[Rfam]
RNA sequence: UGGUGAGGUAGAGGCGCGAAAACCAUAAGUACCCUGCAGGAGGAUUGAGAGUCCAUAGAAUGCAGAAGAAAGGGGAAUUCGCCGAAAUGACAGCUUGCUUCUCAGCGGCUGUUGUUGGGUCUGUAUCGAAUAGAUGCAGGACUGUCACCGAAUCGUCAUCCCGGACGUUCGGUGGAGUACUAUCUCGCAC
Numbered sequence: 001u002g003g004u005g006a007g008g009u010a011g012a013g014g015c016g017c018g019a020a021a022a023c024c025a026u027a028a029g030u031a032c033c034c035u036g037c038a039g040g041a042g043g044a045u046u047g048a049g050a051g052u053c054c055a056u057a058g059a060a061u062g063c064a065g066a067a068g069a070a071a072g073g074g075g076a077a078u079u080c081g082c083c084g085a086a087a088u089g090a091c092a093g094c095u096u097g098c099u100u101c102u103c104a105g106c107g108g109c110u111g112u113u114g115u116u117g118g119g120u121c122u123g124u125a126u127c128g129a130a131u132a133g134a135u136g137c138a139g140g141a142c143u144g145u146c147a148c149c150g151a152a153u154c155g156u157c158a159u160c161c162c163g164g165a166c167g168u169u170c171g172g173u174g175g176a177g178u179a180c181u182a183u184c185u186c187g188c189a190c
Base pairs, nucleotide, nucleotide: 006185007184008183009182010181011180016082017081018080019079020078023075024074034065035064036063037062038061086116087115088114089113090112091111092110093109094108095107117143118142120140121139122138123137124136125135126134127133145175146174147173148172149171150170151169152168153167